[Rfam]
RNA sequence: CGUAUGGUAUUCGGCAAUGACCGGAUGGCGAUACGGCCUAAUGAGGU
Numbered sequence: 001c002g003u004a005u006g007g008u009a010u011u012c013g014g015c016a017a018u019g020a021c022c023g024g025a026u027g028g029c030g031a032u033a034c035g036g037c038c039u040a041a042u043g044a045g046g047u
Base pairs, nucleotide, nucleotide: 001035002034003033004032005031007029008028011024012023013022014021015019
The family of this 47-nucleotide RNA sequence is "L31-Gammaproteobacteria ribosomal protein leader".
A reference for the family is Eckert and Weinberg (2020), "Discovery of 20 novel ribosomal leader candidates in bacteria and archaea", BMC Microbiol.
Rfam classes the family as a cis-regulatory leader.